[Rfam]
RNA: Vault RNA
Nucleotides: 103
Base pairs, nucleotide, nucleotide: 003097004096005095006094007093012087013086014085015084017083018082019081020080025079026078028076
Number, partner (000 for none) and nucleotide at each position: 001000c002000c003097g004096c005095u006094g007093g008000u009000u010000u011000a012087g013086c014085u015084c016000a017083g018082u019081g020080g021000u022000u023000a024000c025079u026078u027000c028076g029000c030000u031000c032000a033000a034000u035000u036000g037000u038000u039000u040000c041000u042000u043000u044000c045000a046000g047000a048000a049000a050000c051000u052000u053000a054000u055000u056000g057000a058000a059000c060000c061000u062000c063000c064000c065000u066000g067000a068000c069000a070000c071000g072000g073000g074000a075000u076028c077000a078026a079025a080020c081019c082018g083017c084015g085014g086013g087012c088000g089000c090000u091000g092000u093007c094006c095005a096004g097003c098000a099000u100000u101000u102000u103000a